[Rfam]
RNA sequence: CUGCAUGUUGGGAGCUCUUAAUCUGCUCUUCAUUCUGUUGGGAGUGAGACUGUGUGUGUCUGCAGCAUACUAUAUAAAAUAAAGGAGUUUUCAGGGCUGCUGGCCAUACGGUGAUGAUUAAAUGAUAGUGUCUUUUUUUUUUAUGA
Numbered sequence: 001c002u003g004c005a006u007g008u009u010g011g012g013a014g015c016u017c018u019u020a021a022u023c024u025g026c027u028c029u030u031c032a033u034u035c036u037g038u039u040g041g042g043a044g045u046g047a048g049a050c051u052g053u054g055u056g057u058g059u060c061u062g063c064a065g066c067a068u069a070c071u072a073u074a075u076a077a078a079a080u081a082a083a084g085g086a087g088u089u090u091u092c093a094g095g096g097c098u099g100c101u102g103g104c105c106a107u108a109c110g111g112u113g114a115u116g117a118u119u120a121a122a123u124g125a126u127a128g129u130g131u132c133u134u135u136u137u138u139u140u141u142u143a144u145g146a
Stems, first nucleotide, its partner, number of pairs: 003070001005068004022048001024046006084139004096126001101120003105116003
Dot-bracket structure: ..(.((((.............(.((((((...........)))))).)................)))).).............((((........(....(((.(((......))).))).....).........)))).......